RNA sequence: AUGUGAUGGGGGGCAUGCGUCCAGAAGGUUCUUAAAACGCUCCCAGUACUCAUAGAGAGUUUCUGAUUCACCUUGAACAAUGCAUGAGAUCUCUUUCCUUAGUCU
Numbered sequence: 001a002u003g004u005g006a007u008g009g010g011g012g013g014c015a016u017g018c019g020u021c022c023a024g025a026a027g028g029u030u031c032u033u034a035a036a037a038c039g040c041u042c043c044c045a046g047u048a049c050u051c052a053u054a055g056a057g058a059g060u061u062u063c064u065g066a067u068u069c070a071c072c073u074u075g076a077a078c079a080a081u082g083c084a085u086g087a088g089a090u091c092u093c094u095u096u097c098c099u100u101a102g103u104c105u
Stems, first nucleotide, its partner, number of pairs: 001105001003103002005100002055072001